[Rfam]
RNA: MIR2593 microRNA precursor family
Organism: Trifolium medium
RNA sequence: AUAUAAGAGAGAUUUUGCUUUUUAGGUUCAUUGUAAAAUGAAUGUAUCUAGACAAUAUUAUAGUCUAGAUGCAUUCAUUUUACAAUGAACCUAAAAAGCAAAACCUCUCUUAUAU
Numbered sequence: 001a002u003a004u005a006a007g008a009g010a011g012a013u014u015u016u017g018c019u020u021u022u023u024a025g026g027u028u029c030a031u032u033g034u035a036a037a038a039u040g041a042a043u044g045u046a047u048c049u050a051g052a053c054a055a056u057a058u059u060a061u062a063g064u065c066u067a068g069a070u071g072c073a074u075u076c077a078u079u080u081u082a083c084a085a086u087g088a089a090c091c092u093a094a095a096a097a098g099c100a101a102a103a104c105c106u107c108u109c110u111u112a113u114a115u
Stems, first nucleotide, its partner, number of pairs: 002114006009107003013103001015101011027089018049067004